[Rfam]
RNA sequence: GGGGAUGCACUGGUUUCGACGGGGAGUACGAAGUUUAAAAUGCAUGCCGUGCCUGAAUGAUGCACGUUAAUCUUAGUUCAAUUUGUUAUAGUUGCAAACGACGAUAACUACGCUCUAGCUGCUUAAUCCAGCUAGUGCAGCCUAGACCAGUUGUUCGUGGCCUCUAGCGCUGUAUCGACUUACGCGAAACCGCUGUUAGCAUGUGUUUGGAUGUUGGCAGUUAAACUUUACAAACUCGCUUGACGUGAUCCCUGCUGGUCGGGCAGCGUUCAGGUUAAAUUAGUAGACCAAAUAAGCAUGUAGAGUUUUAGAUGGAGGCUUUACGGACGGCGGUUCGACUCCGCCCAUCUCCACCA
Numbered sequence: 001g002g003g004g005a006u007g008c009a010c011u012g013g014u015u016u017c018g019a020c021g022g023g024g025a026g027u028a029c030g031a032a033g034u035u036u037a038a039a040a041u042g043c044a045u046g047c048c049g050u051g052c053c054u055g056a057a058u059g060a061u062g063c064a065c066g067u068u069a070a071u072c073u074u075a076g077u078u079c080a081a082u083u084u085g086u087u088a089u090a091g092u093u094g095c096a097a098a099c100g101a102c103g104a105u106a107a108c109u110a111c112g113c114u115c116u117a118g119c120u121g122c123u124u125a126a127u128c129c130a131g132c133u134a135g136u137g138c139a140g141c142c143u144a145g146a147c148c149a150g151u152u153g154u155u156c157g158u159g160g161c162c163u164c165u166a167g168c169g170c171u172g173u174a175u176c177g178a179c180u181u182a183c184g185c186g187a188a189a190c191c192g193c194u195g196u197u198a199g200c201a202u203g204u205g206u207u208u209g210g211a212u213g214u215u216g217g218c219a220g221u222u223a224a225a226c227u228u229u230a231c232a233a234a235c236u237c238g239c240u241u242g243a244c245g246u247g248a249u250c251c252c253u254g255c256u257g258g259u260c261g262g263g264c265a266g267c268g269u270u271c272a273g274g275u276u277a278a279a280u281u282a283g284u285a286g287a288c289c290a291a292a293u294a295a296g297c298a299u300g301u302a303g304a305g306u307u308u309u310a311g312a313u314g315g316a317g318g319c320u321u322u323a324c325g326g327a328c329g330g331c332g333g334u335u336c337g338a339c340u341c342c343g344c345c346c347a348u349c350u351c352c353a354c355c356a
Base pairs, nucleotide, nucleotide: 001352002351003350004349005348006347007346020325021324023322024321025320026319027318033313034312035311036310037309038308039307040306041305043300044299045298046297047296048066049065050064051063052062054080055079056078057077058076115135116134117133118132119131120130121129136174137173138172139171140170141169142167143166144165145164147160154188155187156186157185158184159183192221193220194219195218196217197216198215199214200213205235206234207233208232209231238275239274240273241272242271243269244268245267246266250263251262252261256290257289258288259287260286329345330344331343332342333341

The record is a 356-nucleotide sequence from Hydrogenovibrio marinus, which matches "transfer-messenger RNA" in Rfam. It is annotated as a non-coding RNA gene. The match comes from Rfam's covariance-model search (192 bits). NCBI's taxonomy places the organism under Bacteria, Gammaproteobacteria, Thiotrichales, Piscirickettsiaceae, Hydrogenovibrio. From the family's description: Bacterial tmRNA, also known as 10Sa RNA or SsrA, is named for its dual tRNA and mRNA-like properties. Its role is to liberate the mRNA from a stalled ribosome. To accomplish this part of the tmRNA is used as a reading frame that ends in a translation stop signal.